RNA sequence: AAACAGCCCCCUAUGUUUCUUUGGCAGUUUAGGACCGCCAAGGCAAAAAAAAAAAAAAAAAAAAAAUUGACACAUGGCACCUCACUUAGGGUGCCACGUCAGUGUUGACCGAGUCAACAAUGGACUGGGGGUUCAAAACUGCCAAAGAAUCAAAACAUAGGGGACUGUUU
Numbered sequence: 001a002a003a004c005a006g007c008c009c010c011c012u013a014u015g016u017u018u019c020u021u022u023g024g025c026a027g028u029u030u031a032g033g034a035c036c037g038c039c040a041a042g043g044c045a046a047a048a049a050a051a052a053a054a055a056a057a058a059a060a061a062a063a064a065a066a067u068u069g070a071c072a073c074a075u076g077g078c079a080c081c082u083c084a085c086u087u088a089g090g091g092u093g094c095c096a097c098g099u100c101a102g103u104g105u106u107g108a109c110c111g112a113g114u115c116a117a118c119a120a121u122g123g124a125c126u127g128g129g130g131g132u133u134c135a136a137a138a139c140u141g142c143c144a145a146a147g148a149a150u151c152a153a154a155a156c157a158u159a160g161g162g163g164a165c166u167g168u169u170u
Base pairs, nucleotide, nucleotide: 001170002169004167005166006165008163012159013158014157015156016155017149018148019147020146021145022144023143024142025141026140027139028138029137030136032134033133034132035131036130038128039127040126072099073098075096076095077094078093079092080091081090
RNA: MIR2619 microRNA precursor family